[Rfam]
RNA sequence: ACCUCUGAGCCAUCUCUCCAGCCCCGAUUAUAAUUUUUAUAAUUUAAAAAAUGCAGGGCUGGAGAGAUGGCUCAGUGGU
Numbered sequence: 001a002c003c004u005c006u007g008a009g010c011c012a013u014c015u016c017u018c019c020a021g022c023c024c025c026g027a028u029u030a031u032a033a034u035u036u037u038u039a040u041a042a043u044u045u046a047a048a049a050a051a052u053g054c055a056g057g058g059c060u061g062g063a064g065a066g067a068u069g070g071c072u073c074a075g076u077g078g079u
Base pairs, nucleotide, nucleotide: 002078003077005075006074007073008072009071010070011069012068013067014066015065016064017063018062019061020060021059022058023057024056

mir-3473 microRNA precursor family: a 79-nucleotide sequence from Microtus ochrogaster. A search with the family's covariance model found it, with a score of 86 bits. Pairs were carried over by alignment from the consensus structure, which was predicted with RNAalifold. Rfam 15.1 lists 1,094 matches to the family in 20 species. Lineage of the source: Eukaryota > Opisthokonta > Craniata > Muroidea > Microtus.